[Rfam]
RNA sequence: GUGAGCCGGAGCACGACACGCUGCCACGGCAGAGGAAACUCCUCCCUCGUUACAGGAGGCGCGGCCCGGAGACGGGCAGCCGGAGACGGCUGGCAACGGAGCAGAAAAGGAAUCCCACAUGGAGCACUGUGAAGGUGGCACCGGAGGUUUCCAUGGACGGAGUGAAAAAGCCGCCCCGCGUCGAGCAAGGCCAAACAGGGCCGCAGGUGCCUGUACCAGGCCCAGGUAGGCCGCAAAGCGGAAUAUCGUGGAAACAAGAGGAGGGUUACUCCCGGCACAC
Numbered sequence: 001g002u003g004a005g006c007c008g009g010a011g012c013a014c015g016a017c018a019c020g021c022u023g024c025c026a027c028g029g030c031a032g033a034g035g036a037a038a039c040u041c042c043u044c045c046c047u048c049g050u051u052a053c054a055g056g057a058g059g060c061g062c063g064g065c066c067c068g069g070a071g072a073c074g075g076g077c078a079g080c081c082g083g084a085g086a087c088g089g090c091u092g093g094c095a096a097c098g099g100a101g102c103a104g105a106a107a108a109g110g111a112a113u114c115c116c117a118c119a120u121g122g123a124g125c126a127c128u129g130u131g132a133a134g135g136u137g138g139c140a141c142c143g144g145a146g147g148u149u150u151c152c153a154u155g156g157a158c159g160g161a162g163u164g165a166a167a168a169a170g171c172c173g174c175c176c177c178g179c180g181u182c183g184a185g186c187a188a189g190g191c192c193a194a195a196c197a198g199g200g201c202c203g204c205a206g207g208u209g210c211c212u213g214u215a216c217c218a219g220g221c222c223c224a225g226g227u228a229g230g231c232c233g234c235a236a237a238g239c240g241g242a243a244u245a246u247c248g249u250g251g252a253a254a255c256a257a258g259a260g261g262a263g264g265g266u267u268a269c270u271c272c273c274g275g276c277a278c279a280c
Stems, first nucleotide, its partner, number of pairs: 001280003005276005010270002012250005021032004037267003041264005046185004051215005059181005064077005078091005092176002097173003113161003116156001118155006134142002189232004198223005
Archaeal RNase P: a 280-nucleotide sequence from a Nitrosopumilaceae archaeon. NCBI's taxonomy places the organism under Archaea, Thermoproteati, Nitrososphaeria, Nitrosopumilales, Nitrosopumilaceae. The base pairs follow the family's consensus structure, which is taken from published work. Gene Ontology terms of the family: multimeric ribonuclease P complex, tRNA processing and ribonuclease P activity. By type it is a ribozyme. A reference for the family is Frank and Pace (1998), "Ribonuclease P: unity and diversity in a tRNA processing ribozyme", Annu Rev Biochem.